[Rfam]
RNA: mir-17 microRNA precursor family
Organism: Leptobrachium leishanense
RNA sequence: CAUUUGGCUUCAAAGUGCUGUUCGUGCAGGUAGUUUUUUUUUCUAAUGGACCUACUGCAUGGCUAGCACUUCCCAAGCUCACUG
Numbered sequence: 001c002a003u004u005u006g007g008c009u010u011c012a013a014a015g016u017g018c019u020g021u022u023c024g025u026g027c028a029g030g031u032a033g034u035u036u037u038u039u040u041u042u043c044u045a046a047u048g049g050a051c052c053u054a055c056u057g058c059a060u061g062g063c064u065a066g067c068a069c070u071u072c073c074c075a076a077g078c079u080c081a082c083u084g
Stems, first nucleotide, its partner, number of pairs: 004081001006079002009076002013071008022062006029056005
Dot-bracket structure: ...(.((.((..((((((((.((((((.(((((..................))))))))))).))))))))...)).)).)...